[Rfam]
RNA sequence: CGCGGGAUGGAGCAGUUGGAAGCUCGUCGGGCUCAUAACCCGGAGGUUGUAGGUUCGAAUCCUACUCCCGCAA
Numbered sequence: 001c002g003c004g005g006g007a008u009g010g011a012g013c014a015g016u017u018g019g020a021a022g023c024u025c026g027u028c029g030g031g032c033u034c035a036u037a038a039c040c041c042g043g044a045g046g047u048u049g050u051a052g053g054u055u056c057g058a059a060u061c062c063u064a065c066u067c068c069c070g071c072a073a
Base pairs, nucleotide, nucleotide: 002071003070004069005068006067007066010025011024012023013022027043028042029041030040031039049065050064051063052062053061